[Rfam]
RNA sequence: AUUCUUACCUGGCAGGGGAGCUACCGUGAUCAGGCCGAGGCUCAGCCGUUGUACUUUUGUACUUCAGCAGUGUUGACCCCUGUGAAUUCCCCAAAUGUGGGAAUCUCAACUGCAUAAUUUCUAGUAGUGGGGGGCUGCGUUUGCUCUCUUCCCUG
Numbered sequence: 001a002u003u004c005u006u007a008c009c010u011g012g013c014a015g016g017g018g019a020g021c022u023a024c025c026g027u028g029a030u031c032a033g034g035c036c037g038a039g040g041c042u043c044a045g046c047c048g049u050u051g052u053a054c055u056u057u058u059g060u061a062c063u064u065c066a067g068c069a070g071u072g073u074u075g076a077c078c079c080c081u082g083u084g085a086a087u088u089c090c091c092c093a094a095a096u097g098u099g100g101g102a103a104u105c106u107c108a109a110c111u112g113c114a115u116a117a118u119u120u121c122u123a124g125u126a127g128u129g130g131g132g133g134g135c136u137g138c139g140u141u142u143g144c145u146c147u148c149u150u151c152c153c154u155g
Stems, first nucleotide, its partner, number of pairs: 012113004017043002021039001024037001026035002045077001048073002051071002054067002083108003086104003090100002129154006137146001139144001
About this RNA
Rfam assigns this 155-nucleotide RNA sequence from Denticeps clupeoides to the family "U1 spliceosomal RNA". About the family: U1 is a small nuclear RNA (snRNA) component of the spliceosome (involved in pre-mRNA splicing). Its 5' end forms complementary base pairs with the 5' splice junction, thus defining the 5' donor site of an intron. There are significant differences in sequence and secondary structure between metazoan and yeast U1 snRNAs, the latter being much longer (568 nucleotides as compared to 164 nucleotides in human). Nevertheless, secondary structure predictions suggest that all U1 snRNAs share a 'common core' consisting of helices I, II, the proximal region of III, and IV. This family does not contain the larger yeast sequences. It is annotated as a spliceosomal small nuclear RNA. The family has 100 seed sequences and 40,184 matches in Rfam 15.1. Taxonomically the source falls in Denticeps (Eukaryota, Chordata, Clupei, Denticipitidae). For this family Rfam cites "Saccharomyces cerevisiae U1 small nuclear RNA secondary structure contains both universal and yeast-specific domains" (Kretzner et al., Proc Natl Acad Sci U S A, 1990).